[Rfam]
RNA sequence: CCCAGAGGUAUUGAUUGGUGAACAUCAGCAAGUUGCUUGUUGAAACUGUUUGUUGAAACCAUCUUGAUUACACCAACCUACGCAAAUGCGUAGGUUUUUUUU
Dot-bracket structure: ...............((((((......(..............................)....)......)))))((((((((....)))))))).......
Numbered sequence: 001c002c003c004a005g006a007g008g009u010a011u012u013g014a015u016u017g018g019u020g021a022a023c024a025u026c027a028g029c030a031a032g033u034u035g036c037u038u039g040u041u042g043a044a045a046c047u048g049u050u051u052g053u054u055g056a057a058a059c060c061a062u063c064u065u066g067a068u069u070a071c072a073c074c075a076a077c078c079u080a081c082g083c084a085a086a087u088g089c090g091u092a093g094g095u096u097u098u099u100u101u102u
Stems, first nucleotide, its partner, number of pairs: 016075005021064001028059001076095008

Shown here is a 102-nucleotide sequence from Serratia sp. DD3, a member of the family "OmrA-B family". It scores 73 bits against the family's covariance model.